[Rfam]
RNA sequence: CAAAGAAUUGGGGAUGGCGUCCCCCAUAAAUCGCCUCUAAAGUCUUUAGGGGCUGAUGACGCCUACCUCUCA
Numbered sequence: 001c002a003a004a005g006a007a008u009u010g011g012g013g014a015u016g017g018c019g020u021c022c023c024c025c026a027u028a029a030a031u032c033g034c035c036u037c038u039a040a041a042g043u044c045u046u047u048a049g050g051g052g053c054u055g056a057u058g059a060c061g062c063c064u065a066c067c068u069c070u071c072a
Stems, first nucleotide, its partner, number of pairs: 010025004016063006033053009

A member of the RNA family "Fluoride riboswitch aptamer (crcB RNA motif)" from Thermodesulfobacterium commune, 72 nucleotides long. The family has 289 seed sequences and 2,293 matches in Rfam 15.1. NCBI's taxonomy places the organism under Bacteria, Pseudomonadati, Thermodesulfobacteria, Thermodesulfobacteriales, Thermodesulfobacterium commune. A search with the family's covariance model found it, with a score of 52 bits.